[Rfam]
RNA: mir-30 microRNA precursor family
RNA sequence: GGAGGGGCUGUAAACAUCCUUGACUGGAAGCUGGAGUUCAGACAUUGAGGGCUUUCAGUCGGAUGUUUGCAGCCUCCUG
Numbered sequence: 001g002g003a004g005g006g007g008c009u010g011u012a013a014a015c016a017u018c019c020u021u022g023a024c025u026g027g028a029a030g031c032u033g034g035a036g037u038u039c040a041g042a043c044a045u046u047g048a049g050g051g052c053u054u055u056c057a058g059u060c061g062g063a064u065g066u067u068u069g070c071a072g073c074c075u076c077c078u079g
Base pairs, nucleotide, nucleotide: 002078004076005075006074008072009071010070011069012068013067014066015065016064017063018062019061023059024058025057026056027055028054029053030052031051032050